[Rfam]
This 84-nucleotide RNA from Pararcticibacter amylolyticus belongs to the Rfam family "tRNA". Gene Ontology term of the family: triplet codon-amino acid adaptor activity.

RNA sequence: GCCCGGGUGGCGAAAUUGGUAGACGCACCACUUUGAGGGGGUGGCGCCCGUUUGGGUGUACGAGUUCGAAUCUCGUCUCGGGCA
Numbered sequence: 001g002c003c004c005g006g007g008u009g010g011c012g013a014a015a016u017u018g019g020u021a022g023a024c025g026c027a028c029c030a031c032u033u034u035g036a037g038g039g040g041g042u043g044g045c046g047c048c049c050g051u052u053u054g055g056g057u058g059u060a061c062g063a064g065u066u067c068g069a070a071u072c073u074c075g076u077c078u079c080g081g082g083c084a
Stems, first nucleotide, its partner, number of pairs: 001083007010026003028044005060076005